[Rfam]
RNA sequence: CUCUUUUCCGUAUGCAAGUGUGUUCCUCUAUUUGACGCUAAAGGUGGGUGCCCCCAUUGAAACACUUCACAAAUGUUGCUGUUGCAUUUGGUAGUAUUCGUACCUUUAGCGUCAAGAGACGAACACACUUGCCCAUCGAAAACGAC
Dot-bracket structure: .((.(((.((...((((((((((((.(((.(((((((((((((((((((((..(((.((.(((((..((....))..).)))).))..)))..))))))..)))))))))))))))))).))))))))))))....)).))).)).